[Rfam]
RNA sequence: GAUGAAUCUAAUCCAAUCCAUUAACAAAUUUCUUUACUUGUAGAUGGAUUGGACGGAUCUAUUA
Number, nucleotide and partner (000 for none) at each position: 001g000002a000003u000004g060005a000006a058007u057008c056009u000010a000011a000012u053013c052014c051015a050016a049017u048018c047019c046020a045021u044022u043023a000024a000025c040026a039027a038028a000029u036030u000031u000032c000033u000034u000035u000036a029037c000038u027039u026040g025041u000042a000043g022044a021045u020046g019047g018048a017049u016050u015051g014052g013053a012054c000055g000056g008057a007058u006059c000060u004061a000062u000063u000064a000
MIR5291 microRNA precursor family: a 64-nucleotide RNA sequence from Trifolium subterraneum. Pairs were carried over by alignment from the consensus structure, which was predicted with RNAalifold. It scores 60 bits against the family's covariance model. Rfam 15.1 lists 168 matches to the family in 5 species.